[Rfam]
RNA sequence: GUGCACAGUGAACACCCAAGGAUGCUAACGUAGCUCUCCCUGGUCUUUUAUAACUGUGCUAUAGUAACUCUGAUCUGUACCUCUGCAUUAGGAGAGUUUGUUCCUCCCCUACAUGUAUUCAGCGGAUCAGAAUAAUC
Dot-bracket structure: ..((((((.....(.(((.(.(.(((.....)))..).).))).....)....)))))).(.(.((....)).).)......((((((.(((.(((.......))).)))..)))....)))...............
Numbered sequence: 001g002u003g004c005a006c007a008g009u010g011a012a013c014a015c016c017c018a019a020g021g022a023u024g025c026u027a028a029c030g031u032a033g034c035u036c037u038c039c040c041u042g043g044u045c046u047u048u049u050a051u052a053a054c055u056g057u058g059c060u061a062u063a064g065u066a067a068c069u070c071u072g073a074u075c076u077g078u079a080c081c082u083c084u085g086c087a088u089u090a091g092g093a094g095a096g097u098u099u100g101u102u103c104c105u106c107c108c109c110u111a112c113a114u115g116u117a118u119u120c121a122g123c124g125g126a127u128c129a130g131a132a133u134a135a136u137c
Stems, first nucleotide, its partner, number of pairs: 003059006014049001016043003020039001022037001024034003061076001063074001065072002083122003086115003090110003094106003

The record is a 137-nucleotide sequence from Stegastes partitus, which matches "Small nucleolar RNA SNORA22" in Rfam. Gene Ontology terms of the family: RNA processing and nucleolus.